The family of this 87-nucleotide sequence from Arabis nemorensis is "Small nucleolar RNA U54". It scores 54 bits against the family's covariance model. The family is grouped with related families in Rfam's "U54 clan". U54 is a C/D box small nucleolar RNA, which acts as a methylation guide for 18S ribosomal RNA in plants. The family's RNA type in Rfam is C/D-box small nucleolar RNA. The literature on the family includes a 2003 paper in Nucleic Acids Res by Chen et al., "The high diversity of snoRNAs in plants: identification and comparative study of 120 snoRNA genes from Oryza sativa". The base pairs follow the family's consensus structure, which was predicted with PFOLD.

RNA sequence: GGCUCUGUGAUGACUUUGCCUAAUUGGCAAUAUACGCUAUUCUGAAAAAAGUAUGAAAGAUAAAUACAUUAAUUCUAAAUGAGAGCC
Numbered sequence: 001g002g003c004u005c006u007g008u009g010a011u012g013a014c015u016u017u018g019c020c021u022a023a024u025u026g027g028c029a030a031u032a033u034a035c036g037c038u039a040u041u042c043u044g045a046a047a048a049a050a051g052u053a054u055g056a057a058a059g060a061u062a063a064a065u066a067c068a069u070u071a072a073u074u075c076u077a078a079a080u081g082a083g084a085g086c087c
Base pairs, nucleotide, nucleotide: 001087002086003085004084005083
Taxonomically the source falls in Arabis (Eukaryota, Streptophyta, Streptophytina, Spermatophyta). Rfam links the family to the GO terms RNA processing and nucleolus.